[Rfam]
RNA sequence: AAAAUAUAAUACUAAAUAUCUCGUAUAUCUCUGCGAUAUGGGCAGAAGUUUCUACGGUUUACCUUAAAUGGACUGCUACGAGUGAUUCUUUUUCGCGA
Numbered sequence: 001a002a003a004a005u006a007u008a009a010u011a012c013u014a015a016a017u018a019u020c021u022c023g024u025a026u027a028u029c030u031c032u033g034c035g036a037u038a039u040g041g042g043c044a045g046a047a048g049u050u051u052c053u054a055c056g057g058u059u060u061a062c063c064u065u066a067a068a069u070g071g072a073c074u075g076c077u078a079c080g081a082g083u084g085a086u087u088c089u090u091u092u093u094c095g096c097g098a
Base pairs, nucleotide, nucleotide: 020082021081022080023079024078025077030046031045032044033043034042056074057073058072059071060070061069
The family of this 98-nucleotide sequence from Fusobacterium gonidiaformans is "Purine riboswitch aptamer". The family's consensus secondary structure is taken from published work. A search with the family's covariance model found it, with a score of 62 bits.